[Rfam]
RNA: ClpQY promoter
Organism: Klebsiella sp. RIT-PI-d
RNA sequence: CCCCGCAAAUACUGCGGGGCGCCUAUUCCGCUUUUGCACCCAGGGGGGCAUCUCGUG
Numbered sequence: 001c002c003c004c005g006c007a008a009a010u011a012c013u014g015c016g017g018g019g020c021g022c023c024u025a026u027u028c029c030g031c032u033u034u035u036g037c038a039c040c041c042a043g044g045g046g047g048g049c050a051u052c053u054c055g056u057g
Base pairs, nucleotide, nucleotide: 001019002018003017004016005015006014007013